[Rfam]
RNA sequence: GUUACCAAAUAGAAAGGGAUGAUGGGUGAACGAUGAAGAACUAAUCUUAUUUUAAAACGAUUGAAAUUUCAUAUUUCAAAUCACAAAAUAGGAUUAGUCUGCCCAUUAUCUAUACGGUUAUUAGCUUUUUACGGAAAAGCUUUAUUUGAUUAUGGUAUGAAACGACUAAUCCUUCCAAUUCAACUGGGAGGAUUUUUUU
Numbered sequence: 001g002u003u004a005c006c007a008a009a010u011a012g013a014a015a016g017g018g019a020u021g022a023u024g025g026g027u028g029a030a031c032g033a034u035g036a037a038g039a040a041c042u043a044a045u046c047u048u049a050u051u052u053u054a055a056a057a058c059g060a061u062u063g064a065a066a067u068u069u070c071a072u073a074u075u076u077c078a079a080a081u082c083a084c085a086a087a088a089u090a091g092g093a094u095u096a097g098u099c100u101g102c103c104c105a106u107u108a109u110c111u112a113u114a115c116g117g118u119u120a121u122u123a124g125c126u127u128u129u130u131a132c133g134g135a136a137a138a139g140c141u142u143u144a145u146u147u148g149a150u151u152a153u154g155g156u157a158u159g160a161a162a163c164g165a166c167u168a169a170u171c172c173u174u175c176c177a178a179u180u181c182a183a184c185u186g187g188g189a190g191g192a193u194u195u196u197u198u199u
Stems, first nucleotide, its partner, number of pairs: 016111003023105004030098002042096012059081001061079007117147001123141007168194010
RNA: Bacillus sRNA ncr1575